[Rfam]
RNA sequence: ACGUGCUCCGGGGUCGGUGAGAAUCCGAACCGGCGGUGAUAGUCCGCGACCUCCUGCGAACAGGGGUUGAUCCGGUGAAAAUCCGGAACCGACGGUGAUGCUGGCCCCGGCCAGCGAGUCCGGAUGGAAGGUGGCACGG
Numbered sequence: 001a002c003g004u005g006c007u008c009c010g011g012g013g014u015c016g017g018u019g020a021g022a023a024u025c026c027g028a029a030c031c032g033g034c035g036g037u038g039a040u041a042g043u044c045c046g047c048g049a050c051c052u053c054c055u056g057c058g059a060a061c062a063g064g065g066g067u068u069g070a071u072c073c074g075g076u077g078a079a080a081a082u083c084c085g086g087a088a089c090c091g092a093c094g095g096u097g098a099u100g101c102u103g104g105c106c107c108c109g110g111c112c113a114g115c116g117a118g119u120c121c122g123g124a125u126g127g128a129a130g131g132u133g134g135c136a137c138g139g
Stems, first nucleotide, its partner, number of pairs: 003137004007131002015027003031091002033047004042089002051066002071087005093122003

Rfam assigns this 139-nucleotide sequence from Microbacterium sp. ZXX196 to the family "FMN riboswitch aptamer (RFN element)". The family's consensus secondary structure is taken from published work. The match comes from Rfam's covariance-model search (77 bits). Rfam's curators write: The RFN element is a highly conserved domain that is found frequently in the 5'-untranslated regions of prokaryotic mRNAs that encode for flavin mononucleotide (FMN) biosynthesis and transport proteins. Taxonomically the source falls in Microbacterium (Bacteria, Bacillati, Actinomycetota, Micrococcales).